[Rfam]
RNA sequence: GGCGUUCGCCCUGUCACCACGGAUCGUCGGGCACGUUCCUGCCCGUGAAAGGAAGUCCCA
Dot-bracket structure: .........(((.(((...........((((((......))))))))).)))........

Background
A member of the RNA family "msiK RNA" from Rhodococcus (subgen. Prescottella) equi, 60 nucleotides long. The base pairs follow the family's consensus structure, which is taken from published work. Taxonomically the source falls in Rhodococcus (subgen. Prescottella) equi (Bacteria, Bacillati, Mycobacteriales, Rhodococcus). A search with the family's covariance model found it, with a score of 60 bits.